[Rfam]
RNA sequence: CCGGAGUGAGUUUAAUGCCGCACACACAUCGGCACAUGCGUCUGGGUGCUCUGUCCAAUUCGGCUGGAUGGGGUUGGUGCAUGGGAUGUGUGGAGGAGUAAC
Number, nucleotide and partner (000 for none) at each position: 001c000002c000003g000004g000005a000006g000007u000008g000009a000010g000011u000012u000013u000014a000015a000016u000017g000018c000019c000020g000021c000022a000023c092024a091025c090026a089027c088028a087029u086030c085031g000032g000033c000034a000035c083036a082037u081038g080039c079040g078041u077042c076043u000044g000045g000046g000047u000048g074049c073050u072051c071052u070053g069054u068055c067056c000057a000058a000059u000060u000061c000062g000063g000064c000065u000066g000067g055068a054069u053070g052071g051072g050073g049074u048075u000076g042077g041078u040079g039080c038081a037082u036083g035084g000085g030086a029087u028088g027089u026090g025091u024092g023093g000094a000095g000096g000097a000098g000099u000100a000101a000102c000

Shown here is a 102-nucleotide sequence from Microbulbifer thermotolerans, a member of the family "t44 RNA". The organism belongs to Microbulbifer, within Bacteria.